[Rfam]
RNA: EcpR1
RNA sequence: UUACCCCAUGAUGCUCAGGUCCGCCGCAUCUCCUGGGUCGUGGGGUUGUCGGCUGAUCGUGCGAAGUGGUUCCUCGUGCCGCGACUGCGAUCAGCCGACGCCAUC
Dot-bracket structure: ..((((((((...((((((............)))))).))))))))(((((((((((................................))))))))))).....